[Rfam]
RNA: SAH (S-adenosyl-L-homocysteine) riboswitch aptamer
Organism: Oxalicibacterium flavum
Nucleotides: 080
Stems, first nucleotide, its partner, number of pairs: 002049007021036004026031001
Number, partner (000 for none) and nucleotide at each position: 001000c002049g003048c004047a005046u006045c007044a008043a009000g010000g011000a012000g013000c014000g015000u016000u017000g018000c019000g020000a021036c022035a023034g024033g025000a026031u027000c028000u029000u030000c031026g032000a033024c034023c035022u036021g037000c038000c039000a040000g041000g042000c043008u044007u045006g046005a047004u048003g049002c050000c051000g052000u053000c054000a055000c056000c057000a058000c059000u060000c061000u062000g063000c064000a065000a066000c067000c068000g069000c070000g071000c072000u073000c074000a075000c076000g077000u078000u079000u080000u